[Rfam]
RNA: Small nucleolar RNA SNORA41
RNA sequence: UUCCACAGCUGCUGGUCUGCAGCUAUUCUUAGGGUAGCAGUUGUGGCGUUUCUCUGUGGGAAACAACUGUUAACACAAUGAAACACCUCUUUCUUAGCGAAACAGAAAGUGGGCAUGUGUGUGACCGACACAA
Numbered sequence: 001u002u003c004c005a006c007a008g009c010u011g012c013u014g015g016u017c018u019g020c021a022g023c024u025a026u027u028c029u030u031a032g033g034g035u036a037g038c039a040g041u042u043g044u045g046g047c048g049u050u051u052c053u054c055u056g057u058g059g060g061a062a063a064c065a066a067c068u069g070u071u072a073a074c075a076c077a078a079u080g081a082a083a084c085a086c087c088u089c090u091u092u093c094u095u096a097g098c099g100a101a102a103c104a105g106a107a108a109g110u111g112g113g114c115a116u117g118u119g120u121g122u123g124a125c126c127g128a129c130a131c132a133a
Stems, first nucleotide, its partner, number of pairs: 003059004017046008073122005086113003089109006